[Rfam]
RNA: Small nucleolar RNA Z161/Z228
Organism: Colocasia esculenta
RNA sequence: GUUCCAUAUGAUGAGAAUGGAUCACAAAUUCUCACGACGGUCAUCUGAGACACCCACUGAUGUAGGUGUCUGGGUUGAUUCGAAGAUCCUCACCUUCUCUGAUGGUU
Numbered sequence: 001g002u003u004c005c006a007u008a009u010g011a012u013g014a015g016a017a018u019g020g021a022u023c024a025c026a027a028a029u030u031c032u033c034a035c036g037a038c039g040g041u042c043a044u045c046u047g048a049g050a051c052a053c054c055c056a057c058u059g060a061u062g063u064a065g066g067u068g069u070c071u072g073g074g075u076u077g078a079u080u081c082g083a084a085g086a087u088c089c090u091c092a093c094c095u096u097c098u099c100u101g102a103u104g105g106u107u
Stems, first nucleotide, its partner, number of pairs: 001107001003105002051068004